A member of the RNA family "Archaeal signal recognition particle RNA" from Methanothermobacter tenebrarum, 317 nucleotides long.
By type it is a non-coding RNA gene.
Its Rfam clan is "SRP clan".
Taxonomically the source falls in Methanothermobacter (Archaea, Methanobacteriota, Methanobacteria, Methanobacteriales).
A reference for the family is Wild et al. (2002), "Towards the structure of the mammalian signal recognition particle", Curr Opin Struct Biol.
Rfam links the family to the GO terms SRP-dependent cotranslational protein targeting to membrane, signal sequence recognition and signal recognition particle, plasma membrane targeting.
RNA sequence: ACAUGGGCUAGACCGGAGGGUUAGGGGUCCUCUGUAAGCGCAAAUCCCCUAUAUGGCGCGGUCGAAGUCCAAGAGGCGGCAGACCAACUAGCUACUAGCCCAAGUGUUCAGUGCAGAAGCCUCGUCCCACAGGAUCAGCGGUGAUAGGGCCCCGGCUGGAGGGCUGGGGUUAACUAUCUUAACCACGGGAACCGGGUCAGGCCUGGAAAGGAGCAGCCCUACCGUGGACAGCUGAUGCUUGUGGGUCAGCGGGGUGGAGCUGGGCACUUGGAUCACUAGUAACUAGGAGGACUGUCCACUCUUGGACAAGCCCACCC
Numbered sequence: 001a002c003a004u005g006g007g008c009u010a011g012a013c014c015g016g017a018g019g020g021u022u023a024g025g026g027g028u029c030c031u032c033u034g035u036a037a038g039c040g041c042a043a044a045u046c047c048c049c050u051a052u053a054u055g056g057c058g059c060g061g062u063c064g065a066a067g068u069c070c071a072a073g074a075g076g077c078g079g080c081a082g083a084c085c086a087a088c089u090a091g092c093u094a095c096u097a098g099c100c101c102a103a104g105u106g107u108u109c110a111g112u113g114c115a116g117a118a119g120c121c122u123c124g125u126c127c128c129a130c131a132g133g134a135u136c137a138g139c140g141g142u143g144a145u146a147g148g149g150c151c152c153c154g155g156c157u158g159g160a161g162g163g164c165u166g167g168g169g170u171u172a173a174c175u176a177u178c179u180u181a182a183c184c185a186c187g188g189g190a191a192c193c194g195g196g197u198c199a200g201g202c203c204u205g206g207a208a209a210g211g212a213g214c215a216g217c218c219c220u221a222c223c224g225u226g227g228a229c230a231g232c233u234g235a236u237g238c239u240u241g242u243g244g245g246u247c248a249g250c251g252g253g254g255u256g257g258a259g260c261u262g263g264g265c266a267c268u269u270g271g272a273u274c275a276c277u278a279g280u281a282a283c284u285a286g287g288a289g290g291a292c293u294g295u296c297c298a299c300u301c302u303u304g305g306a307c308a309a310g311c312c313c314a315c316c317c
Stems, first nucleotide, its partner, number of pairs: 004314006011063004015033007038059004043054001067307009078296004084289001088286004093281006100271013114257001119255007126245008134236005140229001141180001143178005148171010183227006194219004202211003